[Rfam]
RNA sequence: UUGUUAUCAAGAAAGGCAGAGGGAAUAGACCCAGUGAAGCCUUAGCAACCCUUUAUUUUUAAAGAAGGUGCUAAAUUCUACCCAAUUUGGAUAGAUAACUC
Number, nucleotide and partner (000 for none) at each position: 001u000002u000003g099004u098005u097006a096007u095008c094009a000010a000011g000012a000013a043014a042015g041016g040017c039018a000019g000020a000021g032022g031023g030024a000025a000026u080027a079028g078029a077030c023031c022032c021033a000034g000035u000036g000037a000038a000039g017040c016041c015042u014043u013044a072045g071046c070047a069048a000049c068050c067051c064052u063053u062054u061055a000056u000057u000058u000059u000060u000061a054062a053063a052064g051065a000066a000067g050068g049069u047070g046071c045072u044073a000074a000075a000076u093077u029078c028079u027080a026081c090082c089083c000084a000085a000086u000087u000088u000089g082090g081091a000092u000093a076094g008095a007096u006097a005098a004099c003100u000101c000
Source information: This 101-nucleotide RNA from Lutibacter maritimus belongs to the Rfam family "SAM riboswitch aptamer (S box leader)". The match comes from Rfam's covariance-model search (79 bits). Rfam 15.1 lists 9,625 matches to the family in 4,158 species. The base pairs follow the family's consensus structure, which is taken from published work.